[Rfam]
RNA sequence: CGAAACUUGAGAGGAUUCUUCUUUAGUACGAGAGGAUUUAGAAGGACGUUCCUCUGGUGUCCCAGUUGUCGCGCUAGCGGCACGGCUGGAUAGCUAUGAACGGAAUGGAUAAACGCUGAAAGCAUAUAAGCGUGAAGCCAGCCUCAAGAUUAGGUUUCGUUGGGUUUUACCCUGAAGUCCCCAAGAAGACGACUUGGUUGAUAGGCCAGAUGUGUAAGAGCAGUAAUGUUCUCAGCUAACUGGUACUAACGGACGAAC
Numbered sequence: 001c002g003a004a005a006c007u008u009g010a011g012a013g014g015a016u017u018c019u020u021c022u023u024u025a026g027u028a029c030g031a032g033a034g035g036a037u038u039u040a041g042a043a044g045g046a047c048g049u050u051c052c053u054c055u056g057g058u059g060u061c062c063c064a065g066u067u068g069u070c071g072c073g074c075u076a077g078c079g080g081c082a083c084g085g086c087u088g089g090a091u092a093g094c095u096a097u098g099a100a101c102g103g104a105a106u107g108g109a110u111a112a113a114c115g116c117u118g119a120a121a122g123c124a125u126a127u128a129a130g131c132g133u134g135a136a137g138c139c140a141g142c143c144u145c146a147a148g149a150u151u152a153g154g155u156u157u158c159g160u161u162g163g164g165u166u167u168u169a170c171c172c173u174g175a176a177g178u179c180c181c182c183a184a185g186a187a188g189a190c191g192a193c194u195u196g197g198u199u200g201a202u203a204g205g206c207c208a209g210a211u212g213u214g215u216a217a218g219a220g221c222a223g224u225a226a227u228g229u230u231c232u233c234a235g236c237u238a239a240c241u242g243g244u245a246c247u248a249a250c251g252g253a254c255g256a257a258c
Stems, first nucleotide, its partner, number of pairs: 001159008011145004017045006047102005055096003062089005067082006106140003113133005162172003177254004181197005202248003205244005212236001218231005
The family of this 258-nucleotide part of an RNA from planctomycete str. 670 is "Bacterial large subunit ribosomal RNA". Rfam's curators put it in the seed alignment. Pairs were carried over by alignment from the consensus structure, which is taken from published work.